This 200-nucleotide RNA sequence from Triticum aestivum belongs to the Rfam family "MIR1435 microRNA precursor family".
Its family is annotated with RISC complex and miRNA-mediated post-transcriptional gene silencing in the Gene Ontology.
The base pairs follow the family's consensus structure, which was predicted with RNAalifold.
The source organism's lineage runs through Eukaryota, Spermatophyta, Mesangiospermae, Liliopsida and Triticum.

RNA sequence: UAGGUCUGUCCUAAGUCGAGCUUCCUUAAGUUUGACCAAGUAUAUAGAAAAAAUUACUAAUACCCACAUCAUCAACUAUAUGUAGUCCGACAAUAUACUUUAUGAUGAAUGUAAUGGAACUAAUUUGGUGUUGUAGAUAUUGGUAUAUUUUUCUACAGACUUGGUUAAACCUAGAGAAGUUUGAAUUAGGAUAAAUCAAG
Numbered sequence: 001u002a003g004g005u006c007u008g009u010c011c012u013a014a015g016u017c018g019a020g021c022u023u024c025c026u027u028a029a030g031u032u033u034g035a036c037c038a039a040g041u042a043u044a045u046a047g048a049a050a051a052a053a054u055u056a057c058u059a060a061u062a063c064c065c066a067c068a069u070c071a072u073c074a075a076c077u078a079u080a081u082g083u084a085g086u087c088c089g090a091c092a093a094u095a096u097a098c099u100u101u102a103u104g105a106u107g108a109a110u111g112u113a114a115u116g117g118a119a120c121u122a123a124u125u126u127g128g129u130g131u132u133g134u135a136g137a138u139a140u141u142g143g144u145a146u147a148u149u150u151u152u153c154u155a156c157a158g159a160c161u162u163g164g165u166u167a168a169a170c171c172u173a174g175a176g177a178a179g180u181u182u183g184a185a186u187u188a189g190g191a192u193a194a195a196u197c198a199a200g
Stems, first nucleotide, its partner, number of pairs: 005195001007193003011189004016184009026175001031169005045155008055145003059141004064136001066134003072128004077123001